mraW RNA: a 100-nucleotide RNA sequence from Subtercola lobariae. The match comes from Rfam's covariance-model search (60 bits). The family's RNA type in Rfam is cis-regulatory element. The family's consensus secondary structure is taken from published work.

RNA sequence: UCUAGUUCGUUGUCUGUGACUCCCAGCCGUUCUGCCCUGACACACUUCCCCGGUGCCAGGUCUGCAAUGGAUGGGGAUCAGAGACCACGAGACGCGAGUC
Number, nucleotide and partner (000 for none) at each position: 001u000002c000003u000004a000005g000006u000007u000008c000009g000010u087011u000012g085013u084014c083015u082016g000017u000018g079019a078020c000021u076022c075023c074024c073025a072026g000027c070028c069029g068030u067031u066032c064033u000034g062035c000036c060037c059038u058039g057040a000041c055042a054043c053044a000045c000046u000047u000048c000049c000050c000051c000052g000053g043054u042055g041056c000057c039058a038059g037060g036061u000062c034063u000064g032065c000066a031067a030068u029069g028070g027071a000072u025073g024074g023075g022076g021077a000078u019079c018080a000081g000082a015083g014084a013085c012086c000087a010088c000089g000090a000091g000092a000093c000094g000095c000096g000097a000098g000099u000100c000